[Rfam]
This 64-nucleotide sequence from Burkholderia pseudomallei belongs to the Rfam family "Betaproteobacteria toxic small RNA". The base pairs follow the family's consensus structure, which was predicted with WAR. Overexpression in amino aid rich medium attenuates growth, suggesting role in repressing amino acid intake and metabolism. The literature on the family includes a 2012 paper in Genome Res by Kimelman et al., "A vast collection of microbial genes that are toxic to bacteria".
RNA sequence: GGUCUCCUCCAUGUCUCCUCCUGAUAUGGAUUAAGCCCGUUCGAACAUGAGCGGGCUUUUUUUC
Number, nucleotide and partner (000 for none) at each position: 001g000002g000003u000004c000005u000006c000007c000008u030009c029010c028011a027012u026013g025014u024015c023016u000017c000018c000019u000020c000021c000022u000023g015024a014025u013026a012027u011028g010029g009030a008031u000032u000033a000034a057035g056036c055037c054038c053039g052040u051041u050042c000043g000044a000045a000046c000047a000048u000049g000050a041051g040052c039053g038054g037055g036056c035057u034058u000059u000060u000061u000062u000063u000064c000